[Rfam]
RNA sequence: GGGCCGUUAACCGCCGGUUAAGCUUUACGGGCGUUUACUGUGUGCAUCCAGUGAUCUGGAUUCUUACCGAGUGGCUGGAGCCACUUCGUUUGACGCCUCCCUGUUAAACUCCUGAGAGCCGCUAUCCGCGGCUCUUUUUUU
Numbered sequence: 001g002g003g004c005c006g007u008u009a010a011c012c013g014c015c016g017g018u019u020a021a022g023c024u025u026u027a028c029g030g031g032c033g034u035u036u037a038c039u040g041u042g043u044g045c046a047u048c049c050a051g052u053g054a055u056c057u058g059g060a061u062u063c064u065u066a067c068c069g070a071g072u073g074g075c076u077g078g079a080g081c082c083a084c085u086u087c088g089u090u091u092g093a094c095g096c097c098u099c100c101c102u103g104u105u106a107a108a109c110u111c112c113u114g115a116g117a118g119c120c121g122c123u124a125u126c127c128g129c130g131g132c133u134c135u136u137u138u139u140u141u
Base pairs, nucleotide, nucleotide: 001043004042005013006012019037020036021035022034023033047060048059049058050057069086070085071084072083073082074081092105093104094103095102114136115135116134117133118132119131120130121129122128
Overview:
Rfam assigns this 141-nucleotide RNA sequence from Mesorhizobium sp. YM1C-6-2 to the family "Alphaproteobacterial sRNA BjrC1505". Lineage of the source: Bacteria > Pseudomonadota > Alphaproteobacteria > Hyphomicrobiales > Mesorhizobium. It is annotated as a small RNA. A reference for the family is Madhugiri et al. (2012), "Small RNAs of the Bradyrhizobium/Rhodopseudomonas lineage and their analysis", RNA Biol. Pairs were carried over by alignment from the consensus structure. It scores 66 bits against the family's covariance model.